[Rfam]
RNA sequence: GGUCUUUGACAUACUUGAUACAGGCGACAAUAGAAUAACUCACGCAGGUGCAAUGCCUGCACAGUGAUUAACAAUACCGCUUGCAAGGUCAGACUUAGCGUGCUGACCGCUGAAUGGCUAACGACCACCACCCCGACCCUCGCAAAGGUCUUGCAAGCAC
Numbered sequence: 001g002g003u004c005u006u007u008g009a010c011a012u013a014c015u016u017g018a019u020a021c022a023g024g025c026g027a028c029a030a031u032a033g034a035a036u037a038a039c040u041c042a043c044g045c046a047g048g049u050g051c052a053a054u055g056c057c058u059g060c061a062c063a064g065u066g067a068u069u070a071a072c073a074a075u076a077c078c079g080c081u082u083g084c085a086a087g088g089u090c091a092g093a094c095u096u097a098g099c100g101u102g103c104u105g106a107c108c109g110c111u112g113a114a115u116g117g118c119u120a121a122c123g124a125c126c127a128c129c130a131c132c133c134c135g136a137c138c139c140u141c142g143c144a145a146a147g148g149u150c151u152u153g154c155a156a157g158c159a160c
Stems, first nucleotide, its partner, number of pairs: 044060005079158008087108006115127003135150004
The family of this 160-nucleotide sequence is "DUF2693 RNA". Pairs were carried over by alignment from the consensus structure, which is taken from published work.